[Rfam]
RNA sequence: UGGUGCCAAACGUGGGGCCUGGAUACUGGGGACAGCGUGAGGGACACGACAGAGGAAAAAAGGGGUGCGCACCCAUUCAAAUAAUUCGGAGACGCUGCUGGAGCCUGCCACGACCGAGCCAAAGGUAAGUUGGUCGUUCAAUCAUGGGGCAAGAAUUAAGCCAGCAUCAGAUUUAUGUGAUACAGUUAAGAGAAGCUCUGCAGGCAAGAGGAGUAAAGGUUAAAACUGAGGAUUUAUUUCAUUUCUUUGAUUUUGUAAAGGACAUUUGUCCCU
Numbered sequence: 001u002g003g004u005g006c007c008a009a010a011c012g013u014g015g016g017g018c019c020u021g022g023a024u025a026c027u028g029g030g031g032a033c034a035g036c037g038u039g040a041g042g043g044a045c046a047c048g049a050c051a052g053a054g055g056a057a058a059a060a061a062g063g064g065g066u067g068c069g070c071a072c073c074c075a076u077u078c079a080a081a082u083a084a085u086u087c088g089g090a091g092a093c094g095c096u097g098c099u100g101g102a103g104c105c106u107g108c109c110a111c112g113a114c115c116g117a118g119c120c121a122a123a124g125g126u127a128a129g130u131u132g133g134u135c136g137u138u139c140a141a142u143c144a145u146g147g148g149g150c151a152a153g154a155a156u157u158a159a160g161c162c163a164g165c166a167u168c169a170g171a172u173u174u175a176u177g178u179g180a181u182a183c184a185g186u187u188a189a190g191a192g193a194a195g196c197u198c199u200g201c202a203g204g205c206a207a208g209a210g211g212a213g214u215a216a217a218g219g220u221u222a223a224a225a226c227u228g229a230g231g232a233u234u235u236a237u238u239u240c241a242u243u244u245c246u247u248u249g250a251u252u253u254u255g256u257a258a259a260g261g262a263c264a265u266u267u268g269u270c271c272c273u
Base pairs, nucleotide, nucleotide: 006031007030012026013025014024036048037047038046085123086122093116094115096112097111100108130152131151132150135149137148138147139146140145157200158199160196161195208248209247210246211245212244213243217235218234219233220232221231258273260271261270262269263268

Rfam assigns this 273-nucleotide sequence from Nannospalax galili to the family "Mason-Pfizer monkey virus packaging signal". Rfam describes the family as follows. This family represents a group of sequences that are related to the Mason-Pfizer monkey virus (MPMV) packaging signal. The packaging signal is located in the 5' UTR and is required for specific RNA encapsidation. Taxonomically the source falls in Nannospalax (Eukaryota, Opisthokonta, Deuterostomia, Theria). Rfam classes the family as a cis-regulatory element. For this family Rfam cites "Mutational analysis of the predicted secondary RNA structure of the Mason-Pfizer monkey virus packaging signal" (Mustafa et al., Virus Res, 2004).